Shown here is a 79-nucleotide sequence from Hucho hucho, a member of the family "Small nucleolar RNA SNORD35".
The base pairs follow the family's consensus structure, which was predicted with PFOLD.
The source organism's lineage runs through Eukaryota, Gnathostomata, Osteoglossocephalai, Salmoniformes and Hucho.
Rfam classes the family as a C/D-box small nucleolar RNA.
Rfam's curators write: U35 is a C/D box snoRNA located in intron 6 of ribosomal protein L13A and intron 3 of ribosomal protein S11 in humans and at homologous positions in mouse and chicken ribosomal protein genes. U35 guides the methylation of 2'-O-ribose sites in 28S rRNA.
[Rfam]
RNA sequence: UGCAAAUGUUUUUCUCACGAUUGUCUUCCAAGCCUGAGGCUCUGACGACACUGCCUAAUGGCAACACUGAUGCAGUUAU
Numbered sequence: 001u002g003c004a005a006a007u008g009u010u011u012u013u014c015u016c017a018c019g020a021u022u023g024u025c026u027u028c029c030a031a032g033c034c035u036g037a038g039g040c041u042c043u044g045a046c047g048a049c050a051c052u053g054c055c056u057a058a059u060g061g062c063a064a065c066a067c068u069g070a071u072g073c074a075g076u077u078a079u
Stems, first nucleotide, its partner, number of pairs: 001074004